[Rfam]
RNA sequence: UUCUGAUUGAAUGAUGAUUGUCGCGUGUCACGUUCUGAUUGGACGUUGAUAACAACAAUACAUUUUCAUCCUCCAUAGAGUUAACAUCCAAUCAGAACGUGACACGUGAUCGUCAUCGUCC
Numbered sequence: 001u002u003c004u005g006a007u008u009g010a011a012u013g014a015u016g017a018u019u020g021u022c023g024c025g026u027g028u029c030a031c032g033u034u035c036u037g038a039u040u041g042g043a044c045g046u047u048g049a050u051a052a053c054a055a056c057a058a059u060a061c062a063u064u065u066u067c068a069u070c071c072u073c074c075a076u077a078g079a080g081u082u083a084a085c086a087u088c089c090a091a092u093c094a095g096a097a098c099g100u101g102a103c104a105c106g107u108g109a110u111c112g113u114c115a116u117c118g119u120c121c
Base pairs, nucleotide, nucleotide: 020110021109022108023107025105026104029101030100031099033097034096035095036094038092039091040090041089042088043087
The record is a 121-nucleotide sequence from Glycine max, which matches "MIR1520 microRNA precursor family" in Rfam. Gene Ontology terms of the family: RISC complex and miRNA-mediated post-transcriptional gene silencing. Taxonomically the source falls in Glycine subgen. Soja (Eukaryota, Euphyllophyta, fabids, Fabaceae). The match comes from Rfam's covariance-model search (104 bits).